The record is a 134-nucleotide RNA from Eleutherodactylus coqui, which matches "Small nucleolar RNA SNORA27" in Rfam. A search with the family's covariance model found it, with a score of 74 bits. NCBI's taxonomy places the organism under Eukaryota, Craniata, Vertebrata, Euteleostomi, Eleutherodactylus. Pairs were carried over by alignment from the consensus structure. From the family's description: ACA27 is a member of the H/ACA class of snoRNA that guide the sites of modification of uridines to pseudouridines. It is annotated as an H/ACA-box small nucleolar RNA.
[Rfam]
RNA sequence: CAGAGCCCUUUUACUUUACCACUUAGAUUUGUAUAUAUCUGGAUUGGUCAUUCAGGGGGGCUAUAUAAGACAUCCUCUUAAAACCCAAGCAAAAUCCUCUGUAUCUUGCUUGUGUCCUGUCAGAGGAGACAAUU
Numbered sequence: 001c002a003g004a005g006c007c008c009u010u011u012u013a014c015u016u017u018a019c020c021a022c023u024u025a026g027a028u029u030u031g032u033a034u035a036u037a038u039c040u041g042g043a044u045u046g047g048u049c050a051u052u053c054a055g056g057g058g059g060g061c062u063a064u065a066u067a068a069g070a071c072a073u074c075c076u077c078u079u080a081a082a083a084c085c086c087a088a089g090c091a092a093a094a095u096c097c098u099c100u101g102u103a104u105c106u107u108g109c110u111u112g113u114g115u116c117c118u119g120u121c122a123g124a125g126g127a128g129a130c131a132a133u134u
Base pairs, nucleotide, nucleotide: 036063037062039060040059044055045054046053047052073127074126075125076124077123078122086112087111088110089109090108091107092106093104